A member of the RNA family "Molybdenum/Tungsten riboswitch aptamer (Moco RNA motif)" from Photobacterium aphoticum, 139 nucleotides long. The match comes from Rfam's covariance-model search (87 bits). Pairs were carried over by alignment from the consensus structure, which is taken from published work.

RNA sequence: AACUGCCAUAGCUCCGAGCUCUGCCUGCUAAGUUGCCUGUUUGGGAUAUGCGUGCUGAGCCAGUGACGUUGAGUCACCAGGGUCGAUGUAGAAAUGCCUCGGCCUCCCGUACUUGGAAAGGUGUUCCGUGGCGAAACCA
Numbered sequence: 001a002a003c004u005g006c007c008a009u010a011g012c013u014c015c016g017a018g019c020u021c022u023g024c025c026u027g028c029u030a031a032g033u034u035g036c037c038u039g040u041u042u043g044g045g046a047u048a049u050g051c052g053u054g055c056u057g058a059g060c061c062a063g064u065g066a067c068g069u070u071g072a073g074u075c076a077c078c079a080g081g082g083u084c085g086a087u088g089u090a091g092a093a094a095u096g097c098c099u100c101g102g103c104c105u106c107c108c109g110u111a112c113u114u115g116g117a118a119a120g121g122u123g124u125u126c127c128g129u130g131g132c133g134a135a136a137c138c139a
Base pairs, nucleotide, nucleotide: 003133010125011124012123014121015120018060019059020058021057023055024054026052027051028050032047033046034045063077064076065075066074067073080105081104082103083102084101085100086099088097089096090095106116107115